[Rfam]
RNA sequence: UGGGCCUGGGAGGGGUAGCGGUCAGAUCUUGUCUAACCCUAACUGAGAAGGGCGUAGGCGCCGCGCUUUUGCUUCCCGCACGCUGUUUUUUUAGCUGACUUUCAGCGGGCGGAAAAGCCUUGGCCUACUGCCGUCCACCGUCCAGUUUGGAACAAACAAAAAAAAUGUCAGCUGCUGGCUUGCUCGCCCCUCCCGGGACUCUGCGGUGGCUCGCCUUGCUUAGCCCCCGCGUCCUGCCUGGAGGCCGCGGUCGGCCCGGGGCUUCUCCGGAGGCACCCAUUGCCGUCGCGAAGAGUUGGGCUCUGUCAGCCGCGGGUCACUGGGGGCCAAGGGCGAGGCUCUGGCCGCAGGGAGAGAAAUGGAGCAGGUCCCCGCGCGCGGUGCGCUUCCCUGAGCUGUGGGACUUGCACCUGGGACUGGGCUCAGACACGC
Numbered sequence: 001u002g003g004g005c006c007u008g009g010g011a012g013g014g015g016u017a018g019c020g021g022u023c024a025g026a027u028c029u030u031g032u033c034u035a036a037c038c039c040u041a042a043c044u045g046a047g048a049a050g051g052g053c054g055u056a057g058g059c060g061c062c063g064c065g066c067u068u069u070u071g072c073u074u075c076c077c078g079c080a081c082g083c084u085g086u087u088u089u090u091u092u093a094g095c096u097g098a099c100u101u102u103c104a105g106c107g108g109g110c111g112g113a114a115a116a117g118c119c120u121u122g123g124c125c126u127a128c129u130g131c132c133g134u135c136c137a138c139c140g141u142c143c144a145g146u147u148u149g150g151a152a153c154a155a156a157c158a159a160a161a162a163a164a165a166u167g168u169c170a171g172c173u174g175c176u177g178g179c180u181u182g183c184u185c186g187c188c189c190c191u192c193c194c195g196g197g198a199c200u201c202u203g204c205g206g207u208g209g210c211u212c213g214c215c216u217u218g219c220u221u222a223g224c225c226c227c228c229g230c231g232u233c234c235u236g237c238c239u240g241g242a243g244g245c246c247g248c249g250g251u252c253g254g255c256c257c258g259g260g261g262c263u264u265c266u267c268c269g270g271a272g273g274c275a276c277c278c279a280u281u282g283c284c285g286u287c288g289c290g291a292a293g294a295g296u297u298g299g300g301c302u303c304u305g306u307c308a309g310c311c312g313c314g315g316g317u318c319a320c321u322g323g324g325g326g327c328c329a330a331g332g333g334c335g336a337g338g339c340u341c342u343g344g345c346c347g348c349a350g351g352g353a354g355a356g357a358a359a360u361g362g363a364g365c366a367g368g369u370c371c372c373c374g375c376g377c378g379c380g381g382u383g384c385g386c387u388u389c390c391c392u393g394a395g396c397u398g399u400g401g402g403a404c405u406u407g408c409a410c411c412u413g414g415g416a417c418u419g420g421g422c423u424c425a426g427a428c429a430c431g432c
Base pairs, nucleotide, nucleotide: 005197006196007195008194009193010192011191012190013189014188015187016186018184020180021179022178023177024176065118066117067116068115069114077111078110079109081107082106083105084104085103094172095171096170097169098168099167100165101164102163200351201350202349203348204347205346206345213339214338215337216336217335218334219333220332221331223327224326225325226324227323228322229321233316234315235314236313237312246290247289248288249287250286252285253284254283255282258278259277260276292304293303294302295301362424363423364422365421367418368417369416370415371414372413381410382409383408384407385406388403389402390401391400